[Rfam]
RNA sequence: UAUUUUUUAACACUAAAACACACACAUAUCAUAAGCUAGGAAUUGGGGUGUCUUUAUAAAGAUCGAUUUUCUAGGAUAUGUGGAGGCUAAAC
Numbered sequence: 001u002a003u004u005u006u007u008u009a010a011c012a013c014u015a016a017a018a019c020a021c022a023c024a025c026a027u028a029u030c031a032u033a034a035g036c037u038a039g040g041a042a043u044u045g046g047g048g049u050g051u052c053u054u055u056a057u058a059a060a061g062a063u064c065g066a067u068u069u070u071c072u073a074g075g076a077u078a079u080g081u082g083g084a085g086g087c088u089a090a091a092c
Base pairs, nucleotide, nucleotide: 023082024081025080026079027078028077029076030075037073038072039071040070041069042067043066044065045064050063051062052061053060054059
Shown here is a 92-nucleotide sequence from Mannheimia varigena, a member of the family "t44 RNA".
The organism belongs to Mannheimia varigena, within Bacteria.
Pairs were carried over by alignment from the consensus structure, which was predicted with LocARNA.
Rfam's curators write: This family consists of a number of bacterial RNA genes of between 135 and 170 bases in length. The t44 gene has been identified in several species of enteric bacteria but homologs have also been identified in Pseudomonas and Coxiella species. The t44 gene is found between the map and rpsB genes in all species in the full alignment apart from Shigella flexneri. The function of this RNA is unknown.
The family's RNA type in Rfam is small RNA.
It scores 64 bits against the family's covariance model.